[Rfam]
RNA sequence: AGCACUUGAUCAGGUAUUGUCUUUUGCUGUAGGCAAAAACCUGGAACCUAGUGCUUAGAAAAAACCCUUCUUUUGCAACCCACAGCUGAUUAACGUAUUAGUUGUGUUACUUAUAUGAAGGGACAAU
Numbered sequence: 001a002g003c004a005c006u007u008g009a010u011c012a013g014g015u016a017u018u019g020u021c022u023u024u025u026g027c028u029g030u031a032g033g034c035a036a037a038a039a040c041c042u043g044g045a046a047c048c049u050a051g052u053g054c055u056u057a058g059a060a061a062a063a064a065c066c067c068u069u070c071u072u073u074u075g076c077a078a079c080c081c082a083c084a085g086c087u088g089a090u091u092a093a094c095g096u097a098u099u100a101g102u103u104g105u106g107u108u109a110c111u112u113a114u115a116u117g118a119a120g121g122g123a124c125a126a127u
Base pairs, nucleotide, nucleotide: 001055002054003053004052005051006050008048014040015039017037018036021033066122067121068120071118072117074115075114081106082105083104084103085102086101087100088099089098090097

This 127-nucleotide RNA sequence from Cyanistes caeruleus belongs to the Rfam family "Small nucleolar RNA SNORA40". The snoRNA ACA 40 belongs to the H/ACA family of snoRNAs and guides the pseudouridylation of 28S rRNA subunit at position U4565. NB This family has a high threshold value to exclude a large number of closely related sequences that do not appear to have conserved H and ACA boxes, and may be pseudogenes. The family's consensus secondary structure was predicted with RNAalifold. The source organism's lineage runs through Eukaryota, Saurischia, Australaves, Paridae and Cyanistes.